[Rfam]
RNA sequence: UGGCCUGAAAUGAUGUUCUGAGUUCAUGUCUCUUCUCUGAGAUGUCUUGUGGAGAUGGCCAGAUUAAUUUCUGAUCAGGCUU
Numbered sequence: 001u002g003g004c005c006u007g008a009a010a011u012g013a014u015g016u017u018c019u020g021a022g023u024u025c026a027u028g029u030c031u032c033u034u035c036u037c038u039g040a041g042a043u044g045u046c047u048u049g050u051g052g053a054g055a056u057g058g059c060c061a062g063a064u065u066a067a068u069u070u071c072u073g074a075u076c077a078g079g080c081u082u
Stems, first nucleotide, its partner, number of pairs: 002081004
Rfam assigns this 82-nucleotide sequence from Anthoscopus minutus to the family "Small nucleolar RNA SNORD111". Gene Ontology terms of the family: nucleolus and RNA processing. It scores 51 bits against the family's covariance model. Rfam classes the family as a C/D-box small nucleolar RNA.